[Rfam]
RNA sequence: UGAGACAACUCGGGUGAAGGAACUCGGCAAAAUGGUACCGUAACUUCGGGAGAAGGUACGCCCCUGGUAUGUGUAAGGACUUGCUCCUGAAGCAGAAGGGGGUUGCAGUGACCAGUUGGCUGCGACUGUUUAGCAAAAACACAGCACUCUGCAAACUCGUAAGAGGACGUAUAGGGUGUGACGCCUGCCCGGUGCCGGAAGGUUAAUUGAUGGGGUUAGCUUCGGCGAAGCUCUUGAUCGAAGCCCCGGUAAACGGCGGCCGUAACUAUAACGGUCCUAAGGUAGCGAAAUUCCUUGUCGGGUAAGUUCCGACCUGCACGAAUGGCGUAACGAUGGCCAAACUGUCUCCACCCGAGACUCA
Numbered sequence: 001u002g003a004g005a006c007a008a009c010u011c012g013g014g015u016g017a018a019g020g021a022a023c024u025c026g027g028c029a030a031a032a033u034g035g036u037a038c039c040g041u042a043a044c045u046u047c048g049g050g051a052g053a054a055g056g057u058a059c060g061c062c063c064c065u066g067g068u069a070u071g072u073g074u075a076a077g078g079a080c081u082u083g084c085u086c087c088u089g090a091a092g093c094a095g096a097a098g099g100g101g102g103u104u105g106c107a108g109u110g111a112c113c114a115g116u117u118g119g120c121u122g123c124g125a126c127u128g129u130u131u132a133g134c135a136a137a138a139a140c141a142c143a144g145c146a147c148u149c150u151g152c153a154a155a156c157u158c159g160u161a162a163g164a165g166g167a168c169g170u171a172u173a174g175g176g177u178g179u180g181a182c183g184c185c186u187g188c189c190c191g192g193u194g195c196c197g198g199a200a201g202g203u204u205a206a207u208u209g210a211u212g213g214g215g216u217u218a219g220c221u222u223c224g225g226c227g228a229a230g231c232u233c234u235u236g237a238u239c240g241a242a243g244c245c246c247c248g249g250u251a252a253a254c255g256g257c258g259g260c261c262g263u264a265a266c267u268a269u270a271a272c273g274g275u276c277c278u279a280a281g282g283u284a285g286c287g288a289a290a291u292u293c294c295u296u297g298u299c300g301g302g303u304a305a306g307u308u309c310c311g312a313c314c315u316g317c318a319c320g321a322a323u324g325g326c327g328u329a330a331c332g333a334u335g336g337c338c339a340a341a342c343u344g345u346c347u348c349c350a351c352c353c354g355a356g357a358c359u360c361a
Base pairs, nucleotide, nucleotide: 001361002360003359004358009356010355011354012353013352014351015350016349018347019346020345035059036058037057038056039055044049060103061102062101063100064099065098104108116340117339118338119337120336121335122334123332124331127141128140129139144179145178146177147176148175149174150173151172152169156165157164158163182327183326184325185324187257188256189255192254193253194250195249196248197247198246201245202244203243212234213233214232215231216230219226220225258276259275260274261273262272263271277281287314297313298312299311300310301309302308